[Rfam]
RNA sequence: CUUCUGCGCAUCCUCGCGACUAAUGACAACCCUAACCCUGAUAUGGGUAAAGCCUCUCAUUAGCCGCGCGAACCUCUGCAACGGAAGAUCAUUCAUAGCAACAAUACAUUAGUUUCCAGCGAAUUGCUGCCAUCUGCUGGAAAAAAGGGGCCAUGAAGGCCCCCUCUU
Numbered sequence: 001c002u003u004c005u006g007c008g009c010a011u012c013c014u015c016g017c018g019a020c021u022a023a024u025g026a027c028a029a030c031c032c033u034a035a036c037c038c039u040g041a042u043a044u045g046g047g048u049a050a051a052g053c054c055u056c057u058c059a060u061u062a063g064c065c066g067c068g069c070g071a072a073c074c075u076c077u078g079c080a081a082c083g084g085a086a087g088a089u090c091a092u093u094c095a096u097a098g099c100a101a102c103a104a105u106a107c108a109u110u111a112g113u114u115u116c117c118a119g120c121g122a123a124u125u126g127c128u129g130c131c132a133u134c135u136g137c138u139g140g141a142a143a144a145a146a147g148g149g150g151c152c153a154u155g156a157a158g159g160c161c162c163c164c165u166c167u168u
Stems, first nucleotide, its partner, number of pairs: 001087006008079003015070004020063007093122002147163006

SraG RNA: a 168-nucleotide RNA from Salmonella enterica. A reference for the family is Fontaine et al. (2016), "The small RNA SraG participates in PNPase homeostasis", RNA. This RNA was discovered in E. coli during a large scale screen. Evidence was found for specific cleavage of this RNA.